[Rfam]
RNA: Ribosomal protein L20 leader
RNA sequence: UGAGAAAAGCAGAAGUGAGAACUUCUCGCCUUGCGACUAACGUUGUCUGGCUCUACAUGUCAAGUUUCAGUGAUGAAAUACAAGAUGUAGUGCGGACUUAGUGAUAGGUCCGCAUUUGUUUUUCUCU
Numbered sequence: 001u002g003a004g005a006a007a008a009g010c011a012g013a014a015g016u017g018a019g020a021a022c023u024u025c026u027c028g029c030c031u032u033g034c035g036a037c038u039a040a041c042g043u044u045g046u047c048u049g050g051c052u053c054u055a056c057a058u059g060u061c062a063a064g065u066u067u068c069a070g071u072g073a074u075g076a077a078a079u080a081c082a083a084g085a086u087g088u089a090g091u092g093c094g095g096a097c098u099u100a101g102u103g104a105u106a107g108g109u110c111c112g113c114a115u116u117u118g119u120u121u122u123u124c125u126c127u
Stems, first nucleotide, its partner, number of pairs: 011026006028051003033046005091114010